The record is an 83-nucleotide sequence from Acetanaerobacterium elongatum, which matches "ZMP/ZTP riboswitch aptamer (pfl RNA motif)" in Rfam. The match comes from Rfam's covariance-model search (61 bits).
Nucleotides: 083
Stems, first nucleotide, its partner, number of pairs: 004054009015043002017071005028039004062076003
Number, partner (000 for none) and nucleotide at each position: 001000u002000a003000a004054u005053u006052c007051u008050c009049c010048c011047g012046u013000u014000a015043c016042u017071g018070a019069c020068g021067g022000u023000u024000g025000a026000a027000a028039g029038u030037g031036g032000g033000a034000a035000a036031c037030c038029a039028c040000a041000a042016a043015g044000g045000a046012g047011c048010g049009g050008g051007a052006g053005a054004a055000g056000c057000u058000a059000a060000c061000a062076g063075c064074c065000g066000a067021c068020c069019g070018u071017c072000u073000g074064g075063g076062c077000a078000a079000u080000u081000c082000u083000a